Shown here is a 78-nucleotide sequence from Aminobacter sp. J15, a member of the family "S-element". The family's consensus secondary structure is taken from published work. About the family: This family represents a group of S-elements from p42d and related plasmids.
RNA sequence: CGUCAAGAGUCUUUGAGGCUCGAUCGCGUCGUUUUGGCGAGCAGGUUUCUUUUGCCUGAGGAAAGGUGAAGGAAAAUG
Numbered sequence: 001c002g003u004c005a006a007g008a009g010u011c012u013u014u015g016a017g018g019c020u021c022g023a024u025c026g027c028g029u030c031g032u033u034u035u036g037g038c039g040a041g042c043a044g045g046u047u048u049c050u051u052u053u054g055c056c057u058g059a060g061g062a063a064a065g066g067u068g069a070a071g072g073a074a075a076a077u078g
Stems, first nucleotide, its partner, number of pairs: 010073005027068004032064004039057001041055005